Guanidine-II riboswitch aptamer (mini-ykkC): a 46-nucleotide RNA from Thioalkalivibrio denitrificans. Simpler in structure and has fewer highly conserved nucleotide positions than the ykkC-yxkD leader. On this family, see Weinberg et al., Nucleic Acids Res 2007: "Identification of 22 candidate structured RNAs in bacteria using the CMfinder comparative genomics pipeline".
RNA sequence: CCAGGGACGACCCUGGCGCCUUCAUCAACUGGCGGGGACGGCCCCU
Numbered sequence: 001c002c003a004g005g006g007a008c009g010a011c012c013c014u015g016g017c018g019c020c021u022u023c024a025u026c027a028a029c030u031g032g033c034g035g036g037g038a039c040g041g042c043c044c045c046u
Base pairs, nucleotide, nucleotide: 001016002015003014004013005012006011034045035044036043037042